[Rfam]
RNA sequence: CAACGUGCUCCGGGGUCGGUGUAAUUCCGAGCCGGCGGUGACAGUCCGCGAACUGCGGGCGCGAGAUCCUCGAUCUCGAGCCCCUGGUUGAUCCGGUGGAAUUCCGGAACCGACGGUGAAAGUCCGGAUGGGAGGCGGCACGUGU
Numbered sequence: 001c002a003a004c005g006u007g008c009u010c011c012g013g014g015g016u017c018g019g020u021g022u023a024a025u026u027c028c029g030a031g032c033c034g035g036c037g038g039u040g041a042c043a044g045u046c047c048g049c050g051a052a053c054u055g056c057g058g059g060c061g062c063g064a065g066a067u068c069c070u071c072g073a074u075c076u077c078g079a080g081c082c083c084c085u086g087g088u089u090g091a092u093c094c095g096g097u098g099g100a101a102u103u104c105c106g107g108a109a110c111c112g113a114c115g116g117u118g119a120a121a122g123u124c125c126g127g128a129u130g131g132g133a134g135g136c137g138g139c140a141c142g143u144g145u
Stems, first nucleotide, its partner, number of pairs: 003143006009135002017029003031123002033112002035049004044110002052088003092108005114126003